[Rfam]
RNA sequence: CCCUAAAGGACCAGACACUAUGUGAGUCAUAUAAGGGAAGGCAUUAUAGGAUUCGUAGUGCCAGGUGUUGUGUGGG
Numbered sequence: 001c002c003c004u005a006a007a008g009g010a011c012c013a014g015a016c017a018c019u020a021u022g023u024g025a026g027u028c029a030u031a032u033a034a035g036g037g038a039a040g041g042c043a044u045u046a047u048a049g050g051a052u053u054c055g056u057a058g059u060g061c062c063a064g065g066u067g068u069u070g071u072g073u074g075g076g
Stems, first nucleotide, its partner, number of pairs: 001076003004072002007069002010066003014062001016060005024054005030048005036042001
The family of this 76-nucleotide RNA from Theropithecus gelada is "mir-3117 microRNA precursor family". The organism belongs to Theropithecus, within Eukaryota. The match comes from Rfam's covariance-model search (81 bits).